[Rfam]
RNA sequence: AGUGCUGAUAGAGGUGCGAGAUUCAUCAGUAAGGGCUUGGAGAAGUAUGAGCUUCCAUGAAAAGUCCUGAAAGGGGAAAUCGCCGAAGCCAAACAGGGCUCAUAUCCUGUUUUUGGGCUGGUCUGCCAUUGAAUAAAUGGCCGAUUGUCAAGAUGGUAUUCUUGGAGAGCUAUCUCACUG
Dot-bracket structure: ......(((((....((((..(((.......(((((((.......................)))))))......)))..))))...((((((((((((......))))))))...))))((((.((((((.....)))))).)))).((((((......))))))....)))))......
RNA: Lysine riboswitch aptamer
Organism: Bacillus sp. V5-8f